[Rfam]
Nucleotides: 060
Base pairs, nucleotide, nucleotide: 010052011051012050014048015047016046028045029044030043031042032041033040
Number, partner (000 for none) and nucleotide at each position: 001000c002000c003000c004000g005000c006000u007000c008000a009000u010052u011051c012050c013000a014048u015047c016046a017000c018000u019000a020000c021000g022000g023000a024000u025000c026000g027000u028045c029044c030043g031042g032041c033040a034000c035000g036000u037000g038000c039000c040033u041032g042031c043030c044029g045028g046016u047015g048014a049000a050012g051011g052010a053000g054000a055000a056000g057000a058000g059000a060000a

Annotation: The family of this 60-nucleotide RNA from Microbacterium ginsengisoli is "msiK RNA". Rfam classes the family as a cis-regulatory element. The source organism's lineage runs through Bacteria, Bacillati, Actinomycetota, Microbacteriaceae and Microbacterium.